[Rfam]
RNA sequence: CAAAAUUCGCGGCAAACUUAUCGAAAGAUGAGGACGCAAAACUAUGGGUCUAAGGACAGAUUAGUCUACGACUGCCAAGUUGCUGAU
Numbered sequence: 001c002a003a004a005a006u007u008c009g010c011g012g013c014a015a016a017c018u019u020a021u022c023g024a025a026a027g028a029u030g031a032g033g034a035c036g037c038a039a040a041a042c043u044a045u046g047g048g049u050c051u052a053a054g055g056a057c058a059g060a061u062u063a064g065u066c067u068a069c070g071a072c073u074g075c076c077a078a079g080u081u082g083c084u085g086a087u
Base pairs, nucleotide, nucleotide: 012037013036017032018031019030020029021028022027040081041080042079043078045077046076047075048072049071050070055066056065057064